[Rfam]
RNA sequence: CUUCAGGGAAGUUCGAUUAAAAUCGCUACGUCACGUAGCAACAUCGAACCAACCCACGUCGUGUGGG
Numbered sequence: 001c002u003u004c005a006g007g008g009a010a011g012u013u014c015g016a017u018u019a020a021a022a023u024c025g026c027u028a029c030g031u032c033a034c035g036u037a038g039c040a041a042c043a044u045c046g047a048a049c050c051a052a053c054c055c056a057c058g059u060c061g062u063g064u065g066g067g
Base pairs, nucleotide, nucleotide: 011049012048013047014046015045016044017043025039026038027037028036029035053067054066055065056064057063
A member of the RNA family "Bacillaceae-1 RNA" from Pontibacillus yanchengensis, 67 nucleotides long. The family's consensus secondary structure is taken from published work.